[Rfam]
RNA sequence: AGCAGGGGAGAGGAAGUAGGCUCACUUUAUUUUAAUUAGUCAGUCUUUUUCUCUCUCCUAUU
Dot-bracket structure: ((.(((((.((((..(.(((((.(((...........))).))))).).)))).))))).))
Overview: Rfam assigns this 62-nucleotide RNA from Photinus pyralis to the family "mir-14 microRNA precursor family". The organism belongs to Photinus, within Eukaryota. Rfam links the family to the GO terms miRNA-mediated post-transcriptional gene silencing and RISC complex. The literature on the family includes a 2009 paper in BMC Genomics by Li et al., "Direct sequencing and expression analysis of a large number of miRNAs in Aedes aegypti and a multi-species survey of novel mosquito miRNAs".